[Rfam]
RNA sequence: AAGGUGGUAUCGCUUGGAUGCGAACCGCACUUGUAGCUUGUAUGAAAAGCAAUAAAAAAUGCAACAGUAAUCCAAUACCGUCAUGGAUUCGCGGCGGAUUCUGCUCUGAGCCGAAAGGACCGAGACAGAAGG
Number, nucleotide and partner (000 for none) at each position: 001a032002a031003g030004g028005u027006g026007g025008u024009a000010u023011c022012g021013c020014u000015u000016g000017g000018a000019u000020g013021c012022g011023a010024a008025c007026c006027g005028c004029a000030c003031u002032u001033g000034u000035a000036g000037c000038u000039u000040g000041u000042a000043u000044g000045a000046a000047a000048a000049g000050c000051a000052a000053u000054a000055a000056a000057a000058a000059a000060u000061g000062c000063a000064a000065c000066a000067g000068u000069a000070a000071u000072c000073c000074a000075a000076u000077a000078c000079c000080g000081u000082c000083a000084u000085g000086g000087a000088u000089u000090c000091g000092c000093g000094g000095c000096g000097g000098a000099u000100u000101c128102u127103g126104c124105u123106c122107u000108g120109a000110g000111c118112c117113g000114a000115a000116a000117g112118g111119a000120c108121c000122g106123a105124g104125a000126c103127a102128g101129a000130a000131g000132g000
A member of the RNA family "pan motif" from Cohnella terricola, 132 nucleotides long. It is annotated as a cis-regulatory element. The source organism's lineage runs through Bacteria, Bacillati, Bacilli, Caryophanales and Cohnella.